A member of the RNA family "Purine riboswitch aptamer" from Halarsenatibacter silvermanii, 102 nucleotides long. The base pairs follow the family's consensus structure, which is taken from published work. NCBI's taxonomy places the organism under Bacteria, Bacillota, Clostridia, Halanaerobiales, Halarsenatibacter.

RNA sequence: AAAAUAAAAUUAUUAGCACCUCAUAUAAAGGUGGGAAUAAGGCCCACAGGUUUCUACCGGGUUGCCGAUAACAACUCGACUAUGAGGGAAAGUGUGCCCAGG
Numbered sequence: 001a002a003a004a005u006a007a008a009a010u011u012a013u014u015a016g017c018a019c020c021u022c023a024u025a026u027a028a029a030g031g032u033g034g035g036a037a038u039a040a041g042g043c044c045c046a047c048a049g050g051u052u053u054c055u056a057c058c059g060g061g062u063u064g065c066c067g068a069u070a071a072c073a074a075c076u077c078g079a080c081u082a083u084g085a086g087g088g089a090a091a092g093u094g095u096g097c098c099c100a101g102g
Stems, first nucleotide, its partner, number of pairs: 019087007031047005058078007